The family of this 75-nucleotide sequence from Frankia sp. R43 is "ASpks TB sRNA". The source organism's lineage runs through Bacteria, Bacillati, Actinomycetota, Frankiaceae and Frankia. A reference for the family is Arnvig and Young (2009), "Identification of small RNAs in Mycobacterium tuberculosis", Mol Microbiol.
RNA sequence: CUUGAGCGUUCCCAGCCACAGCGGAUGCCCGGGCGGUCGGCCCUGGCCGUAGGUGGCCAGCAGGGCGUGCGCCUC
Numbered sequence: 001c002u003u004g005a006g007c008g009u010u011c012c013c014a015g016c017c018a019c020a021g022c023g024g025a026u027g028c029c030c031g032g033g034c035g036g037u038c039g040g041c042c043c044u045g046g047c048c049g050u051a052g053g054u055g056g057c058c059a060g061c062a063g064g065g066c067g068u069g070c071g072c073c074u075c
Stems, first nucleotide, its partner, number of pairs: 014026001016024002032070001038065001043060003047056003

The family's RNA type in Rfam is antisense RNA.
The base pairs follow the family's consensus structure, which is taken from published work.